[Rfam]
The family of this 139-nucleotide RNA from Kryptolebias marmoratus is "Small nucleolar RNA SNORD10". The organism belongs to Kryptolebias, within Eukaryota. The base pairs follow the family's consensus structure, which was predicted with WAR. Rfam 15.1 lists 433 matches to the family in 306 species. It scores 74 bits against the family's covariance model. The family's RNA type in Rfam is C/D-box small nucleolar RNA.
RNA sequence: GUAUGAUGAUGAUAUCCAUGCGUGUCAACUGACUCUGGCCAUCCCUGGUGUGGUGGUGCUCAAGGCAGUGUUUUGCUGACUGAGUUUUCACAACAACAAGGACCCAGAGACGUGAUCAUACAUUCAUGGUUCUGAGCAC
Dot-bracket structure: ((.(......................................((.((.(((.........................................))).)).))..................................).))